This 54-nucleotide RNA sequence from Triplophysa rosa belongs to the Rfam family "UnaL2 LINE 3' element".
The family's RNA type in Rfam is cis-regulatory element.
Rfam describes the family as follows. The eel long interspersed element (LINE) UnaL2 and its partner short interspersed element (SINE) share a conserved 3' tail containing a stem-loop that is critical for their retrotransposition. Presumably, the first step of retrotransposition is the recognition of their 3' tails by UnaL2-encoded reverse transcriptase. The solution structure of a 17-nucleotide RNA derived from the 3' tail of UnaL2 was determined by NMR.
The source organism's lineage runs through Eukaryota, Metazoa, Actinopterygii, Cobitoidei and Triplophysa.
The base pairs follow the family's consensus structure, which is taken from published work.
Nucleotides: 054
Base pairs, nucleotide, nucleotide: 013043014041015040016039021035022034023033024032025031
Number, partner (000 for none) and nucleotide at each position: 001000c002000u003000c004000u005000a006000u007000c008000u009000u010000c011000u012000c013043u014041g015040u016039a017000a018000g019000u020000c021035g022034c023033u024032u025031u026000g027000g028000a029000u030000a031025a032024a033023a034022g035021c036000a037000u038000c039016u040015g041014c042000u043013a044000a045000a046000u047000g048000c049000c050000u051000g052000a053000a054000u